[Rfam]
RNA sequence: UUCCACAGCUACUGGUCUGCAGCUGAUUUCAUGAUAGCAGUUGUAGCAUUCCUCUGUGGGAAAGAAAUGACUGUACAGUUCAAUACCUCUUUCUUAGCCAAGCAGAAUGCAGUCAUAGCAUAUGUGUGACAGACACAA
Numbered sequence: 001u002u003c004c005a006c007a008g009c010u011a012c013u014g015g016u017c018u019g020c021a022g023c024u025g026a027u028u029u030c031a032u033g034a035u036a037g038c039a040g041u042u043g044u045a046g047c048a049u050u051c052c053u054c055u056g057u058g059g060g061a062a063a064g065a066a067a068u069g070a071c072u073g074u075a076c077a078g079u080u081c082a083a084u085a086c087c088u089c090u091u092u093c094u095u096a097g098c099c100a101a102g103c104a105g106a107a108u109g110c111a112g113u114c115a116u117a118g119c120a121u122a123u124g125u126g127u128g129a130c131a132g133a134c135a136c137a138a
Stems, first nucleotide, its partner, number of pairs: 003059004017046009073127005087112002089109001091107004